[Rfam]
RNA: mir-142 microRNA precursor family
Organism: Clupea harengus
RNA sequence: CAGUGCAGUCAUCCAUAAAGUAGGAAACACUACACUGUGUAGAAUAGUUUAAUAGUGCUUUCUACUUUAUGGUUGACUACACUGU
Numbered sequence: 001c002a003g004u005g006c007a008g009u010c011a012u013c014c015a016u017a018a019a020g021u022a023g024g025a026a027a028c029a030c031u032a033c034a035c036u037g038u039g040u041a042g043a044a045u046a047g048u049u050u051a052a053u054a055g056u057g058c059u060u061u062c063u064a065c066u067u068u069a070u071g072g073u074u075g076a077c078u079a080c081a082c083u084g085u
Base pairs, nucleotide, nucleotide: 014071015070016069017068018067019066020065021064022063023062026059028057029056030055031054032053